The record is a 59-nucleotide sequence from Paracoccus onubensis, which matches "terC RNA" in Rfam.
The base pairs follow the family's consensus structure, which is taken from published work.

[Rfam]
RNA sequence: AACGGUGACCGGGCCCCUCUGGCGAAUCAGGCGGCGAUUCGUGAUGUCGGGAACCACCA
Number, nucleotide and partner (000 for none) at each position: 001a000002a000003c000004g000005g000006u053007g000008a000009c050010c049011g048012g047013g000014c000015c000016c000017c000018u000019c000020u000021g000022g042023c041024g040025a039026a038027u037028c036029a000030g000031g000032c000033g000034g000035c000036g028037a027038u026039u025040c024041g023042u022043g000044a000045u000046g000047u012048c011049g010050g009051g000052a000053a006054c000055c000056a000057c000058c000059a000